[Rfam]
RNA sequence: GUUUGGCUGAUGACUUUUAACAAUUUGUCGGAUACCCCUUCACUCCUUAUGAGUGAUAACAGCAGUCUGACAAAC
Numbered sequence: 001g002u003u004u005g006g007c008u009g010a011u012g013a014c015u016u017u018u019a020a021c022a023a024u025u026u027g028u029c030g031g032a033u034a035c036c037c038c039u040u041c042a043c044u045c046c047u048u049a050u051g052a053g054u055g056a057u058a059a060c061a062g063c064a065g066u067c068u069g070a071c072a073a074a075c
Stems, first nucleotide, its partner, number of pairs: 001075005
A member of the RNA family "Small nucleolar RNA SNORD101" from Upupa epops, 75 nucleotides long. Taxonomically the source falls in Upupa (Eukaryota, Deuterostomia, Tetrapoda, Bucerotiformes). Rfam links the family to the GO terms nucleolus and RNA processing. A search with the family's covariance model found it, with a score of 71 bits. The family's RNA type in Rfam is C/D-box small nucleolar RNA.